[Rfam]
Nucleotides: 107
Stems, first nucleotide, its partner, number of pairs: 005098001007096004012090002014085001016083002024038001026036003039060002043055003065079005
Number, partner (000 for none) and nucleotide at each position: 001000g002000u003000a004000u005098u006000c007096u008095a009094u010093g011000g012090g013089g014085g015000a016083a017082g018000g019000a020000a021000c022000u023000u024038u025000a026036a027035a028034g029000a030000a031000c032000a033000a034028c035027u036026u037000a038024a039060g040059u041000a042000c043055u044054a045053a046000c047000u048000u049000a050000a051000u052000c053045u054044u055043a056000c057000a058000u059040g060039u061000c062000c063000c064000u065079a066078u067077g068076u069075a070000a071000u072000u073000c074000g075069u076068g077067c078066a079065u080000u081000a082017c083016u084000g085014c086000u087000a088000g089013c090012c091000a092000a093010c094009a095008u096007g097000a098005a099000u100000a101000u102000u103000a104000u105000a106000u107000a
Shown here is a 107-nucleotide RNA sequence from Colobus angolensis, a member of the family "Mitochondrial DNA control region secondary structure A".
NCBI's taxonomy places the organism under Eukaryota, Vertebrata, Sarcopterygii, Amniota, Colobus angolensis.
It scores 74 bits against the family's covariance model.
By type it is an antisense RNA.